[Rfam]
Shown here is a 143-nucleotide sequence from Myotis davidii, a member of the family "Small nucleolar RNA SNORA57". Lineage of the source: Eukaryota > Metazoa > Dipnotetrapodomorpha > Vespertilionidae > Myotis. The literature on the family includes a 2003 paper in Nucleic Acids Res by Vitali et al., "Identification of 13 novel human modification guide RNAs". Gene Ontology terms of the family: nucleolus and RNA processing. Rfam describes the family as follows. U99 belongs to the H/ACA class of snoRNAs which are thought to guide the sites of modification of uridines to pseudouridines, the target for this family is unknown. The family has 26 seed sequences and 1,736 matches in Rfam 15.1.
RNA sequence: CCUCCUCUUGUUGGCGGGGUUCGGGCGUGCGGUCCCAGUUCCCGUAAUGAACGGAGGCAGAGAGCCCCGGCCCCCUGGGCGUCAUGCCUUCCAUGCUGAUGAUUUCCAGUCCACUGGUUCUAUCCCCAAGCGCCAGGACAUGG
Number, nucleotide and partner (000 for none) at each position: 001c057002c056003u055004c054005c053006u000007c000008u000009u000010g000011u000012u000013g000014g000015c044016g043017g042018g041019g040020u000021u000022c000023g036024g035025g034026c000027g000028u000029g000030c000031g000032g000033u000034c025035c024036c023037a000038g000039u000040u019041c018042c017043c016044g015045u000046a000047a000048u000049g000050a000051a000052c000053g005054g004055a003056g002057g001058c000059a000060g000061a000062g000063a000064g000065c000066c000067c000068c000069g000070g000071c000072c000073c000074c000075c000076u000077g000078g134079g133080c132081g131082u130083c000084a000085u000086g000087c000088c000089u000090u000091c000092c000093a000094u000095g000096c117097u116098g115099a000100u113101g112102a000103u000104u000105u000106c000107c000108a000109g000110u000111c000112c101113a100114c000115u098116g097117g096118u000119u000120c000121u000122a000123u000124c000125c000126c000127c000128a000129a000130g082131c081132g080133c079134c078135a000136g000137g000138a000139c000140a000141u000142g000143g000